[Rfam]
RNA sequence: AAAAAAAGCUAGGGGUGCUUGAAAUGAGCUGAGAUGGCAAUGCCAGACCCUUUGAACCUGAUAGAGUUAGGACUCGCGGAGGAAAGCUGAUCACACGCACG
Numbered sequence: 001a002a003a004a005a006a007a008g009c010u011a012g013g014g015g016u017g018c019u020u021g022a023a024a025u026g027a028g029c030u031g032a033g034a035u036g037g038c039a040a041u042g043c044c045a046g047a048c049c050c051u052u053u054g055a056a057c058c059u060g061a062u063a064g065a066g067u068u069a070g071g072a073c074u075c076g077c078g079g080a081g082g083a084a085a086g087c088u089g090a091u092c093a094c095a096c097g098c099a100c101g
Stems, first nucleotide, its partner, number of pairs: 007088004011051004016045001017029005036044003057082003064075003
This 101-nucleotide sequence from Secundilactobacillus similis belongs to the Rfam family "TPP riboswitch aptamer (THI element)". A search with the family's covariance model found it, with a score of 69 bits.